The record is a 105-nucleotide RNA from Prunus avium, which matches "MIR6274 microRNA precursor family" in Rfam. The family's consensus secondary structure was predicted with RNAalifold.
RNA sequence: GGAUAGCACUAUUUCGCUAUUCCCGGCCAAUAAUACAAUGACACGUGGAAAAGUUAUCCUGCGUGUCAUUGCACUAUUGGCCGAGAAUAGUAAAAAGUGAUAUUC
Numbered sequence: 001g002g003a004u005a006g007c008a009c010u011a012u013u014u015c016g017c018u019a020u021u022c023c024c025g026g027c028c029a030a031u032a033a034u035a036c037a038a039u040g041a042c043a044c045g046u047g048g049a050a051a052a053g054u055u056a057u058c059c060u061g062c063g064u065g066u067c068a069u070u071g072c073a074c075u076a077u078u079g080g081c082c083g084a085g086a087a088u089a090g091u092a093a094a095a096a097g098u099g100a101u102a103u104u105c
Stems, first nucleotide, its partner, number of pairs: 002104004012095003016091005022085001024083009034073001036071013050057001